[Rfam]
RNA sequence: AAAUCCUUUAACAACAGUCCCGUGAGGCUGUGAAGGUUGUCCACGAUAACGCACGUUUUUUGACGAGCGCAUGGCUGCCUUUUAAGGUAGCCAUUUUUUUG
Number, nucleotide and partner (000 for none) at each position: 001a000002a000003a038004u000005c036006c035007u034008u033009u032010a000011a000012c000013a000014a031015c030016a029017g028018u027019c026020c000021c000022g000023u000024g000025a000026g019027g018028c017029u016030g015031u014032g009033a008034a007035g006036g005037u000038u003039g000040u000041c000042c000043a000044c000045g000046a000047u000048a000049a000050c000051g068052c067053a000054c065055g064056u063057u062058u000059u000060u000061u000062g057063a056064c055065g054066a000067g052068c051069g096070c000071a094072u093073g092074g091075c090076u089077g088078c087079c086080u085081u000082u000083u000084a000085a080086g079087g078088u077089a076090g075091c074092c073093a072094u071095u000096u069097u000098u000099u000100u000101g000
The record is a 101-nucleotide RNA sequence from Pseudolactococcus insecticola, which matches "PyrR binding site" in Rfam. By type it is a cis-regulatory element. From the family's description: This family represents the PyrR binding site and terminator structure. This RNA structure is found upstream of a variety of genes involved in pyrimidine biosynthesis and transport. The alignment also includes a portion of the antiterminator structure.